RNA sequence: GUGAAGUUGAUCACAACAAACAUAUACCCCUUUGUUUGACCGUGAAAAAUUUCUCCCAUCCCCUUUGUUCGUAUUAAGAGAAAUGCCCUGCAGUUGAUGGCUGCAGGGCAUUU
Numbered sequence: 001g002u003g004a005a006g007u008u009g010a011u012c013a014c015a016a017c018a019a020a021c022a023u024a025u026a027c028c029c030c031u032u033u034g035u036u037u038g039a040c041c042g043u044g045a046a047a048a049a050u051u052u053c054u055c056c057c058a059u060c061c062c063c064u065u066u067g068u069u070c071g072u073a074u075u076a077a078g079a080g081a082a083a084u085g086c087c088c089u090g091c092a093g094u095u096g097a098u099g100g101c102u103g104c105a106g107g108g109c110a111u112u113u
Base pairs, nucleotide, nucleotide: 003053004052005051006050007049008048011045012044013043014042017038018037019036020035021034022033069080072078084110085109086108087107088106089105090104091103092102093101094100
Dot-bracket structure: ..((((((..((((..((((((..........))))))...))))..))))))...............(..(.....).)...(((((((((((.....)))))))))))...